Shown here is a 76-nucleotide RNA sequence from Propithecus coquereli, a member of the family "mir-1290 microRNA precursor family". It scores 82 bits against the family's covariance model. Its family is annotated with miRNA-mediated post-transcriptional gene silencing and RISC complex in the Gene Ontology. The organism belongs to Propithecus, within Eukaryota. The family's consensus secondary structure was predicted with RNAalifold.

RNA sequence: GAGUGUCAUGUCAGCACCCAGAAAGUUUCAGAUUUUGGAGCAUUUUGGAUUUUGGAUUUCUGGAUUUGUGAUGCUC
Number, nucleotide and partner (000 for none) at each position: 001g076002a075003g074004u073005g072006u071007c070008a000009u000010g000011u068012c000013a066014g065015c000016a000017c000018c063019c062020a061021g060022a059023a058024a057025g000026u000027u056028u055029c054030a053031g052032a051033u000034u049035u048036u047037g046038g045039a044040g000041c000042a000043u000044u039045u038046u037047g036048g035049a034050u000051u032052u031053u030054g029055g028056a027057u024058u023059u022060c021061u020062g019063g018064a000065u014066u013067u000068g011069u000070g007071a006072u005073g004074c003075u002076c001